[Rfam]
Shown here is a 92-nucleotide RNA sequence from Listeria monocytogenes, a member of the family "Glycine riboswitch aptamer".
For this family Rfam cites "In Vivo Behavior of the Tandem Glycine Riboswitch in Bacillus subtilis" (Babina et al., MBio, 2017).
Rfam's curators put it in the seed alignment.
RNA sequence: GUGAAUGUAAGCAGAGAGACUGCGAAAAGCAGCGCCGACGGGGAAAGCAUAUAUUAUGUGAAACUCUCAGGCAAAAGGAUGUUUACGGGACG
Numbered sequence: 001g002u003g004a005a006u007g008u009a010a011g012c013a014g015a016g017a018g019a020c021u022g023c024g025a026a027a028a029g030c031a032g033c034g035c036c037g038a039c040g041g042g043g044a045a046a047g048c049a050u051a052u053a054u055u056a057u058g059u060g061a062a063a064c065u066c067u068c069a070g071g072c073a074a075a076a077g078g079a080u081g082u083u084u085a086c087g088g089g090a091c092g
Base pairs, nucleotide, nucleotide: 006087007086008085009084010083011082012081013080020032021031022030023029034072035071036070037068038067041066042065043064047059048058
Dot-bracket structure: .....((((((((......((((.....)))).(((((..(((...((.........))....))))).))).......)))))))).....